The record is a 412-nucleotide sequence, which matches "Giant, ornate, lake- and Lactobacillales-derived (GOLLD) RNA" in Rfam.

RNA sequence: GAGAGUAGUUAAGUAUCGACUCAUCCAAAAGAUGGGUUGGCUUGGUUGGCGGACCACUACUUUCACAAUCCACAACACAAAACUUAUGACUCUGAUUAAGUCAAAUUAAUUAUUAUGAAGUAAGGAAAAGUGUCCGUCAGGUUUGAAUGAAAGGUGACUACAUAGUAAUGAGCCGUUCAUUGCACACAAAGAUCCCAAGUCGAUGUGUAAUUAUCCCAAACACCUUUAGUCCCGCAAGGACGAACUGGGAAGGCAUUCUCAGAAAGAGUCAAGUAAGAUGAGAGUAAUUUAAACCUUAAGGAGUGGUAAACCUAAAAGACCGUCACUGAGAAAUACUUCUCAAAAGGAAGUGGAUAGGAGUAGAAACAAUAAUGACUCUAAAGGUUCUCAAUCAAACGUGUAAUCUCAGCGU
Numbered sequence: 001g002a003g004a005g006u007a008g009u010u011a012a013g014u015a016u017c018g019a020c021u022c023a024u025c026c027a028a029a030a031g032a033u034g035g036g037u038u039g040g041c042u043u044g045g046u047u048g049g050c051g052g053a054c055c056a057c058u059a060c061u062u063u064c065a066c067a068a069u070c071c072a073c074a075a076c077a078c079a080a081a082a083c084u085u086a087u088g089a090c091u092c093u094g095a096u097u098a099a100g101u102c103a104a105a106u107u108a109a110u111u112a113u114u115a116u117g118a119a120g121u122a123a124g125g126a127a128a129a130g131u132g133u134c135c136g137u138c139a140g141g142u143u144u145g146a147a148u149g150a151a152a153g154g155u156g157a158c159u160a161c162a163u164a165g166u167a168a169u170g171a172g173c174c175g176u177u178c179a180u181u182g183c184a185c186a187c188a189a190a191g192a193u194c195c196c197a198a199g200u201c202g203a204u205g206u207g208u209a210a211u212u213a214u215c216c217c218a219a220a221c222a223c224c225u226u227u228a229g230u231c232c233c234g235c236a237a238g239g240a241c242g243a244a245c246u247g248g249g250a251a252g253g254c255a256u257u258c259u260c261a262g263a264a265a266g267a268g269u270c271a272a273g274u275a276a277g278a279u280g281a282g283a284g285u286a287a288u289u290u291a292a293a294c295c296u297u298a299a300g301g302a303g304u305g306g307u308a309a310a311c312c313u314a315a316a317a318g319a320c321c322g323u324c325a326c327u328g329a330g331a332a333a334u335a336c337u338u339c340u341c342a343a344a345a346g347g348a349a350g351u352g353g354a355u356a357g358g359a360g361u362a363g364a365a366a367c368a369a370u371a372a373u374g375a376c377u378c379u380a381a382a383g384g385u386u387c388u389c390a391a392u393c394a395a396a397c398g399u400g401u402a403a404u405c406u407c408a409g410c411g412u
Stems, first nucleotide, its partner, number of pairs: 001064009010044005017039009048138007124196002139296010154326005165183006184208005191201003211281005224266004229241004245262003249258002305321003328389005334352007353405003358378004363373001397411003

Description
Pairs were carried over by alignment from the consensus structure, which is taken from published work.